The family of this 77-nucleotide RNA sequence from Crocodylus porosus is "Mammalian CPEB3 ribozyme".
The family's consensus secondary structure is taken from published work.
The match comes from Rfam's covariance-model search (57 bits).
Lineage of the source: Eukaryota > Tetrapoda > Amniota > Crocodylia > Crocodylus.
Rfam links the family to the GO term RNA nuclease activity.
The mammalian CPEB3 ribozyme is a self cleaving RNA located in the second intron of the CPEB3 gene which belongs to a family of genes regulating messenger RNA polyadenylation. This ribozyme is highly conserved and found only in mammals. The CPEB3 ribozyme is structurally and biochemically related to the human hepatitis delta virus (HDV) ribozyme and the HDV ribozyme is proposed to have arisen from the human transcriptome. There is currently only one other known self cleaving ribozyme in mammals, the CoTC motif.
RNA sequence: UGUUGCAAGUUUGGGACCAUAGCAGAAGCACUCAUGGUGUGGUCCUGUCAGAUUCCAACAAAUCUGUGAAUUCUGCU
Numbered sequence: 001u002g003u004u005g006c007a008a009g010u011u012u013g014g015g016a017c018c019a020u021a022g023c024a025g026a027a028g029c030a031c032u033c034a035u036g037g038u039g040u041g042g043u044c045c046u047g048u049c050a051g052a053u054u055c056c057a058a059c060a061a062a063u064c065u066g067u068g069a070a071u072u073c074u075g076c077u
Stems, first nucleotide, its partner, number of pairs: 014045005021077007028040003049066006